[Rfam]
RNA sequence: AGGCAUAUCCGUAGACCUUGCUUGACUCUGCCUGUGGCCAAGCAAGGGGGACAGCGUAUGCAAGAGUAAUUGGAGUUCAUGCAAGUUCUAACCAGUUUAACCAGUAGCUGGGUGAAUUGCAGUACUCCAACAUUC
Numbered sequence: 001a002g003g004c005a006u007a008u009c010c011g012u013a014g015a016c017c018u019u020g021c022u023u024g025a026c027u028c029u030g031c032c033u034g035u036g037g038c039c040a041a042g043c044a045a046g047g048g049g050g051a052c053a054g055c056g057u058a059u060g061c062a063a064g065a066g067u068a069a070u071u072g073g074a075g076u077u078c079a080u081g082c083a084a085g086u087u088c089u090a091a092c093c094a095g096u097u098u099a100a101c102c103a104g105u106a107g108c109u110g111g112g113u114g115a116a117u118u119g120c121a122g123u124a125c126u127c128c129a130a131c132a133u134u135c
Base pairs, nucleotide, nucleotide: 003061004060005059006058007057008056016047017046018045019044020043021042022041023040024039072128073127074126075125077124080121081120082119092111093110094109095108096107

Rfam assigns this 135-nucleotide RNA from Rattus norvegicus to the family "Small nucleolar RNA SNORA58".
Gene Ontology terms of the family: nucleolus and RNA processing.
From the family's description: ACA52 is a member of the H/ACA class of snoRNA that guide the sites of modification of uridines to pseudouridines.
The source organism's lineage runs through Eukaryota, Metazoa, Rodentia, Myomorpha and Rattus.
The family's RNA type in Rfam is H/ACA-box small nucleolar RNA.